[Rfam]
RNA sequence: GUUUCAGACGAAUCCUCGUGGGGUUGAAGA
Numbered sequence: 001g002u003u004u005c006a007g008a009c010g011a012a013u014c015c016u017c018g019u020g021g022g023g024u025u026g027a028a029g030a
Stems, first nucleotide, its partner, number of pairs: 011025005